Source information
The record is a 66-nucleotide RNA sequence from Laodelphax striatellus, which matches "mir-2 microRNA precursor family" in Rfam. Pairs were carried over by alignment from the consensus structure, which was predicted with PFOLD.
[Rfam]
RNA sequence: AUGCACAUCAAAGUGGCUGUGAAAUGUACUUUCACAUCAUAUCACAGCCAGCUUUGAUGAGCGUAA
Numbered sequence: 001a002u003g004c005a006c007a008u009c010a011a012a013g014u015g016g017c018u019g020u021g022a023a024a025u026g027u028a029c030u031u032u033c034a035c036a037u038c039a040u041a042u043c044a045c046a047g048c049c050a051g052c053u054u055u056g057a058u059g060a061g062c063g064u065a066a
Stems, first nucleotide, its partner, number of pairs: 006059008014050009025041003